[Rfam]
RNA sequence: CUGCGUCUUCGGGGCGGGGUGUAAUUCCCCACCGGCGGUAUGGCCUUCGGGCCGAGCCCGCGAGCGCUUUCGCCGCCUUGGCGAAAGGUCAGCAGAUCUGGUGCGAUGCCAGAGCCGACGGUGAUAGUCCGGAUGAAAGAAGAUGAUG
Numbered sequence: 001c002u003g004c005g006u007c008u009u010c011g012g013g014g015c016g017g018g019g020u021g022u023a024a025u026u027c028c029c030c031a032c033c034g035g036c037g038g039u040a041u042g043g044c045c046u047u048c049g050g051g052c053c054g055a056g057c058c059c060g061c062g063a064g065c066g067c068u069u070u071c072g073c074c075g076c077c078u079u080g081g082c083g084a085a086a087g088g089u090c091a092g093c094a095g096a097u098c099u100g101g102u103g104c105g106a107u108g109c110c111a112g113a114g115c116c117g118a119c120g121g122u123g124a125u126a127g128u129c130c131g132g133a134u135g136a137a138a139g140a141a142g143a144u145g146a147u148g
Stems, first nucleotide, its partner, number of pairs: 004145007017029003031128002033117002035061004056115002064093002097113005119131003
Dot-bracket structure: ...(((((((......(((.......))).[[((((((.................[[))))..((..........................))...(((((.......)))))]])).(((.....]]))).......)))))))...
Rfam assigns this 148-nucleotide RNA sequence from Aquaspirillum sp. LM1 to the family "FMN riboswitch aptamer (RFN element)".
The match comes from Rfam's covariance-model search (114 bits).
Its family is annotated with FMN binding in the Gene Ontology.
The base pairs follow the family's consensus structure, which is taken from published work.
The source organism's lineage runs through Bacteria, Pseudomonadati, Pseudomonadota, Betaproteobacteria and Aquaspirillum.